Rfam assigns this 89-nucleotide RNA from Chanos chanos to the family "mir-146 microRNA precursor family". The match comes from Rfam's covariance-model search (64 bits). A reference for the family is Cai et al. (2005), "Kaposi's sarcoma-associated herpesvirus expresses an array of viral microRNAs in latently infected cells", Proc Natl Acad Sci U S A. The organism belongs to Chanos, within Eukaryota. The family has 33 seed sequences and 1,617 matches in Rfam 15.1.
RNA sequence: UUGAGGUCUUGGCUUUGAGAACUGAACUCCAAGGGUGUCAGAUUAUAGCUCAGCCCACGGAGCUCAGUUCUUAAGCUUGGAUUCUUGUU
Numbered sequence: 001u002u003g004a005g006g007u008c009u010u011g012g013c014u015u016u017g018a019g020a021a022c023u024g025a026a027c028u029c030c031a032a033g034g035g036u037g038u039c040a041g042a043u044u045a046u047a048g049c050u051c052a053g054c055c056c057a058c059g060g061a062g063c064u065c066a067g068u069u070c071u072u073a074a075g076c077u078u079g080g081a082u083u084c085u086u087g088u089u
Base pairs, nucleotide, nucleotide: 008080009079011077012076013075018071019070020069021068022067023066024065025064033056034055035054036053